Description: A member of the RNA family "Guanidine-I riboswitch aptamer" from Halalkalibacter suaedae, 97 nucleotides long. The pairing is the family consensus, mapped onto this sequence. This family represents a conserved RNA structure found upstream of the ykkC and yxkD genes in Bacillus subtilis and related genes in other bacteria.
RNA sequence: AGAAAAGUUUUCUAGGGUUCCGCAGCAUUACCGUUGGACUGGUCCGAGAGAAAACUCACAGCUUGCUGUGUCACGGAAGGAAAAAAGCCUGGGAGAU
Numbered sequence: 001a002g003a004a005a006a007g008u009u010u011u012c013u014a015g016g017g018u019u020c021c022g023c024a025g026c027a028u029u030a031c032c033g034u035u036g037g038a039c040u041g042g043u044c045c046g047a048g049a050g051a052a053a054a055c056u057c058a059c060a061g062c063u064u065g066c067u068g069u070g071u072c073a074c075g076g077a078a079g080g081a082a083a084a085a086a087g088c089c090u091g092g093g094a095g096a097u
Stems, first nucleotide, its partner, number of pairs: 007055006015045002020042002022039001023036004057070005072092001074095001078090003

Lineage of the source: Bacteria > Bacillati > Bacilli > Caryophanales > Halalkalibacter.